[Rfam]
RNA sequence: GUGGGAAGCGCACGGCCGCAAAUCUGACCUGUCGUCGGUUUUGGCGACUUGGGAUUGCGGAAGUGC
Numbered sequence: 001g002u003g004g005g006a007a008g009c010g011c012a013c014g015g016c017c018g019c020a021a022a023u024c025u026g027a028c029c030u031g032u033c034g035u036c037g038g039u040u041u042u043g044g045c046g047a048c049u050u051g052g053g054a055u056u057g058c059g060g061a062a063g064u065g066c
Base pairs, nucleotide, nucleotide: 010066011065012064013063016060017059018058019057020056021055024053025052031048032047033046034045035044036043037042
RNA: S15-Halobacteria ribosomal protein leader